[Rfam]
RNA sequence: CAGUGCUUGAUACUCUUUCCCUGUUGCACUACUGUGGGAGCUGCAGCGAGCAGUGCAAUAAUGAAAGGGCAUCAAUCAGCGG
Dot-bracket structure: (.(.(.((((..(((((((..(((((((((.....................)))))))))..)))))))..)))).)..).)
RNA: mir-130 microRNA precursor family
Organism: Cyprinodon variegatus